[Rfam]
RNA sequence: GGGUCGAUGCCCGAGUGGUUAAUGGGGACGGACUGUAAAUUCGUUGACAAUGUCUACGCUGGUUCAAAUCCAGCUCGGCCCA
Numbered sequence: 001g002g003g004u005c006g007a008u009g010c011c012c013g014a015g016u017g018g019u020u021a022a023u024g025g026g027g028a029c030g031g032a033c034u035g036u037a038a039a040u041u042c043g044u045u046g047a048c049a050a051u052g053u054c055u056a057c058g059c060u061g062g063u064u065c066a067a068a069u070c071c072a073g074c075u076c077g078g079c080c081c082a
Stems, first nucleotide, its partner, number of pairs: 001081007010026004028044005058074005
The record is an 82-nucleotide sequence, which matches "tRNA" in Rfam. By type it is a transfer RNA. The sequence is in the family's curated seed alignment.